[Rfam]
RNA sequence: CAGAUUUCACCGCUUAGUCAUCCGCGAGGGUGAGCCGGGGAACCACUUUGUUCGGGCGCGAGUCCGAUUGGGGUGAGUCGCGAAUCGACGACCACGCGUCGUCGUGCCGCGUAGGGCGAUCUUCCAGCCCGAACCCGACAGCUAACUCGGUAGGCGGUAGGGAGACCAAAA
Numbered sequence: 001c002a003g004a005u006u007u008c009a010c011c012g013c014u015u016a017g018u019c020a021u022c023c024g025c026g027a028g029g030g031u032g033a034g035c036c037g038g039g040g041a042a043c044c045a046c047u048u049u050g051u052u053c054g055g056g057c058g059c060g061a062g063u064c065c066g067a068u069u070g071g072g073g074u075g076a077g078u079c080g081c082g083a084a085u086c087g088a089c090g091a092c093c094a095c096g097c098g099u100c101g102u103c104g105u106g107c108c109g110c111g112u113a114g115g116g117c118g119a120u121c122u123u124c125c126a127g128c129c130c131g132a133a134c135c136c137g138a139c140a141g142c143u144a145a146c147u148c149g150g151u152a153g154g155c156g157g158u159a160g161g162g163a164g165a166c167c168a169a170a171a
Base pairs, nucleotide, nucleotide: 011156012155013154014153018033019032020031021030022029023028034151035150036149037148038147039146044070045069071136072135073134079111080110081109082108114130115129116128117127
RNA: c-di-AMP riboswitch aptamer (ydaO/yuaA leader)
Organism: Gordonia asplenii